[Rfam]
Nucleotides: 099
Stems, first nucleotide, its partner, number of pairs: 007056006015046002020043002022040001023037006057072006074094001076097001080092003
Number, partner (000 for none) and nucleotide at each position: 001000a002000c003000a004000a005000u006000g007056g008055a009054u010053g011052g012051c013000u014000a015046g016045g017000g018000u019000u020043c021042c022040g023037g024036c025035u026034c027033g028032c029000g030000c031000a032028g033027c034026g035025a036024g037023u038000g039000u040022c041000u042021g043020g044000u045016c046015c047000g048000a049000g050000a051012g052011c053010c054009a055008u056007c057072g058071a059070c060069c061068u062067c063000c064000a065000g066000c067062g068061a069060g070059g071058u072057u073000a074094c075000a076097c077000g078000g079000c080092g081091g082090g083000a084000c085000a086000a087000a088000a089000g090082c091081c092080c093000g094074g095000g096000a097076g098000a099000a